[Rfam]
RNA sequence: GUUACCUUUAAUUCAGUCCUGUGAGGCUGGCAAGGUGGAACAGAUGUAGGUCUGUUGAUAUCGGACAAAACCUGUAACUAGCAGUUUAGUAGUUUUUGUCUGUCCAGAAACACCUUGCGAAAUUGCAGCAAGGUGUUUUUUUGU
Numbered sequence: 001g002u003u004a005c006c007u008u009u010a011a012u013u014c015a016g017u018c019c020u021g022u023g024a025g026g027c028u029g030g031c032a033a034g035g036u037g038g039a040a041c042a043g044a045u046g047u048a049g050g051u052c053u054g055u056u057g058a059u060a061u062c063g064g065a066c067a068a069a070a071c072c073u074g075u076a077a078c079u080a081g082c083a084g085u086u087u088a089g090u091a092g093u094u095u096u097u098g099u100c101u102g103u104c105c106a107g108a109a110a111c112a113c114c115u116u117g118c119g120a121a122a123u124u125g126c127a128g129c130a131a132g133g134u135g136u137u138u139u140u141u142u143g144u
Stems, first nucleotide, its partner, number of pairs: 003037006013030006062102009072092004106140013

PyrR binding site: a 144-nucleotide RNA sequence from Lentibacillus populi. Lineage of the source: Bacteria > Bacillati > Bacillota > Caryophanales > Lentibacillus. By type it is a cis-regulatory element. For this family Rfam cites "Molecular recognition of pyr mRNA by the Bacillus subtilis attenuation regulatory protein PyrR" (Bonner et al., Nucleic Acids Res, 2001).